[Rfam]
RNA sequence: AUUGCCCUUAGAGGCAUUCAUUGUAGAUAAGGCUGCUGUGUCAUAUGUACAUCAGUAGGUGGCAGAGAUGAGAGAGGUUAUGUUUAUGGUAAGUGAACAUCUGGAUGAUUCAUAGCUUAACACU
Numbered sequence: 001a002u003u004g005c006c007c008u009u010a011g012a013g014g015c016a017u018u019c020a021u022u023g024u025a026g027a028u029a030a031g032g033c034u035g036c037u038g039u040g041u042c043a044u045a046u047g048u049a050c051a052u053c054a055g056u057a058g059g060u061g062g063c064a065g066a067g068a069u070g071a072g073a074g075a076g077g078u079u080a081u082g083u084u085u086a087u088g089g090u091a092a093g094u095g096a097a098c099a100u101c102u103g104g105a106u107g108a109u110u111c112a113u114a115g116c117u118u119a120a121c122a123c124u
Base pairs, nucleotide, nucleotide: 002065003064004063005062006061007059008058009057010056013053014052023050024049025048028045029044031042032041033040072121075118076117077116078115079114080113081112087107088106090104092102093101094099
RNA: Small nucleolar RNA SNORA17
Organism: Mus musculus